[Rfam]
RNA: Xanthomonas sRNA sX9
Organism: Xanthomonas albilineans
RNA sequence: AUGUACCCGCUCACUGCGGUUCCUGCGCGCUGUACGCCCCCACCCGACAGCGACUCGCGACGUUUUGUUAGCC
Numbered sequence: 001a002u003g004u005a006c007c008c009g010c011u012c013a014c015u016g017c018g019g020u021u022c023c024u025g026c027g028c029g030c031u032g033u034a035c036g037c038c039c040c041c042a043c044c045c046g047a048c049a050g051c052g053a054c055u056c057g058c059g060a061c062g063u064u065u066u067g068u069u070a071g072c073c
Base pairs, nucleotide, nucleotide: 002013003012017032018031019030020029022027044071046069047068048067049066050065